Record summary: This 370-nucleotide RNA sequence from Porphyromonas sp. COT-290 OH860 belongs to the Rfam family "Bacterial RNase P class A". It is annotated as a ribozyme.
RNA sequence: GCAGAGGGUCGGUCUGUCGCGCCCUAGUUCGUAUGGACUAGCGGUGAGGAACGUCCGGGCAACGCAGAGCACCAUACUUCCUAACGGGAAGCUAUCCGUGAGGGUAGAGUAGUGUAACAGAGAACGACAGCCUCUUGUGAUGGAGGUGAUGGUGAAAAGGUGGGGUAAGAGCCCACCGGGCAUUGUGGCGACACAGUGUGCCGUACACCUUAUGGGUUGCAAGAUCAUGUAAACCGACGCUACGAGGGUUGCUCGCCCCAUGUCGGAGGGUAGAUUGCUAGAGCUGUGCAGCGAUGCACAGUCGAGAUAAAUGACAGACGCUACAGCCUAGCUUGUAGUACAGAACCCGGCUUAUAGACCCUCUGCCUGU
Numbered sequence: 001g002c003a004g005a006g007g008g009u010c011g012g013u014c015u016g017u018c019g020c021g022c023c024c025u026a027g028u029u030c031g032u033a034u035g036g037a038c039u040a041g042c043g044g045u046g047a048g049g050a051a052c053g054u055c056c057g058g059g060c061a062a063c064g065c066a067g068a069g070c071a072c073c074a075u076a077c078u079u080c081c082u083a084a085c086g087g088g089a090a091g092c093u094a095u096c097c098g099u100g101a102g103g104g105u106a107g108a109g110u111a112g113u114g115u116a117a118c119a120g121a122g123a124a125c126g127a128c129a130g131c132c133u134c135u136u137g138u139g140a141u142g143g144a145g146g147u148g149a150u151g152g153u154g155a156a157a158a159g160g161u162g163g164g165g166u167a168a169g170a171g172c173c174c175a176c177c178g179g180g181c182a183u184u185g186u187g188g189c190g191a192c193a194c195a196g197u198g199u200g201c202c203g204u205a206c207a208c209c210u211u212a213u214g215g216g217u218u219g220c221a222a223g224a225u226c227a228u229g230u231a232a233a234c235c236g237a238c239g240c241u242a243c244g245a246g247g248g249u250u251g252c253u254c255g256c257c258c259c260a261u262g263u264c265g266g267a268g269g270g271u272a273g274a275u276u277g278c279u280a281g282a283g284c285u286g287u288g289c290a291g292c293g294a295u296g297c298a299c300a301g302u303c304g305a306g307a308u309a310a311a312u313g314a315c316a317g318a319c320g321c322u323a324c325a326g327c328c329u330a331g332c333u334u335g336u337a338g339u340a341c342a343g344a345a346c347c348c349g350g351c352u353u354a355u356a357g358a359c360c361c362u363c364u365g366c367c368u369g370u
Stems, first nucleotide, its partner, number of pairs: 001366010011355001012319007020046004024041005051353001053351001055350005060219004067254004072215005077091005092107001094105004108210002112208005128151002130147006159177006179201001180199008223276004234266005246258004283302008